[Rfam]
Shown here is a 93-nucleotide sequence from Rhizobium sp. RU20A, a member of the family "RcsR1 sRNA". RcsR1 (rhizobial cold and salinity stress riboregulator 1) trans-acting sRNA, formerly known as SmelC587, is a stress-related riboregulator, conserved in Sinorhizobium, Rhizobium and Agrobacterium.
RNA sequence: ACAUCUCCGGUUGGUGGUGGGCUCGCUGAAGCGGCCUCGACCAGUCAUGCGUGAAUGGAACCAGAGCCGCCCGAAUUUCGAGGCGGCUUUUUC
Numbered sequence: 001a002c003a004u005c006u007c008c009g010g011u012u013g014g015u016g017g018u019g020g021g022c023u024c025g026c027u028g029a030a031g032c033g034g035c036c037u038c039g040a041c042c043a044g045u046c047a048u049g050c051g052u053g054a055a056u057g058g059a060a061c062c063a064g065a066g067c068c069g070c071c072c073g074a075a076u077u078u079c080g081a082g083g084c085g086g087c088u089u090u091u092u093c
Stems, first nucleotide, its partner, number of pairs: 011044005017038001019037004024033003048059001050057002064089008072080003
The family's RNA type in Rfam is small RNA. It scores 84 bits against the family's covariance model. For this family Rfam cites "The stress-related, rhizobial small RNA RcsR1 destabilizes the autoinducer synthase encoding mRNA sinI in Sinorhizobium meliloti" (Baumgardt et al., RNA Biol, 2015).